[Rfam]
RNA: transfer-messenger RNA
Organism: Mediterraneibacter sp. gm002
RNA sequence: GGGCUUGUACUGGUUUCGACAGGGAUUCUGAAGAUGGAGAAGCUAUCCGUAGGUCGAUGCGUCAAAUCGCAAACUUAAAAUUAAACGCUAACGAUAAUUUCGAAUUAGCUGCAGCCUAAUUGCUGCAUGUCAGCCCCGAGGCACCCGCACCUUGGGAAUCUGGCAUCAACUAUGCGGGAAACGAUAUUAGCAAAGCUUUGAGUUAAUAGGCGUAUUAUGAAGCUACUGAACCUGUAAGAGUGUUAGUUCUCGUACAGCAGAGGGAAUGUUAAAUAACUGACUAUGAUAGUAGAAGUACAUGGGAUGGGUUUUUGGACGCGAGUUCGAUUCUCGCCAGGUCCAUUC
Number, nucleotide and partner (000 for none) at each position: 001g341002g340003g339004c338005u337006u336007g335008u000009a000010c000011u000012g000013g000014u000015u000016u000017c000018g000019a000020c314021a313022g312023g311024g310025a309026u308027u307028c306029u000030g000031a000032a000033g000034a300035u299036g298037g000038a296039g000040a000041a000042g000043c289044u288045a287046u286047c285048c061049g060050u059051a058052g000053g000054u000055c069056g068057a000058u051059g050060c049061g048062u000063c000064a000065a000066a000067u000068c056069g055070c000071a000072a000073a000074c000075u000076u000077a000078a000079a000080a000081u000082u000083a000084a000085a000086c000087g000088c000089u000090a000091a000092c000093g000094a000095u000096a000097a000098u000099u000100u000101c000102g000103a000104a000105u000106u000107a000108g000109c000110u127111g126112c125113a124114g123115c122116c000117u000118a000119a000120u000121u000122g115123c114124u113125g112126c111127a110128u165129g164130u163131c162132a161133g160134c000135c156136c155137c154138g153139a152140g151141g150142c000143a000144c178145c177146c176147g175148c174149a173150c141151c140152u139153u138154g137155g136156g135157a000158a000159u000160c133161u132162g131163g130164c129165a128166u000167c000168a000169a000170c000171u000172a000173u149174g148175c147176g146177g145178g144179a000180a000181a000182c000183g000184a000185u208186a207187u206188u205189a204190g203191c202192a000193a000194a224195g223196c222197u221198u220199u219200g000201a000202g191203u190204u189205a188206a187207u186208a185209g000210g000211c000212g000213u000214a000215u000216u000217a000218u000219g199220a198221a197222g196223c195224u194225a000226c263227u262228g000229a000230a000231c000232c257233u256234g255235u254236a000237a000238g251239a250240g249241u000242g281243u280244u279245a278246g000247u275248u000249c240250u239251c238252g000253u000254a235255c234256a233257g232258c000259a000260g000261a000262g227263g226264g000265a000266a000267u000268g000269u000270u000271a000272a000273a000274u000275a247276a000277c000278u245279g244280a243281c242282u000283a000284u000285g047286a046287u045288a044289g043290u000291a000292g000293a000294a000295g000296u038297a000298c036299a035300u034301g000302g000303g000304a000305u000306g028307g027308g026309u025310u024311u023312u022313u021314g020315g000316a000317c000318g334319c333320g332321a331322g330323u000324u000325c000326g000327a000328u000329u000330c322331u321332c320333g319334c318335c007336a006337g005338g004339u003340c002341c001342a000343u000344u000345c000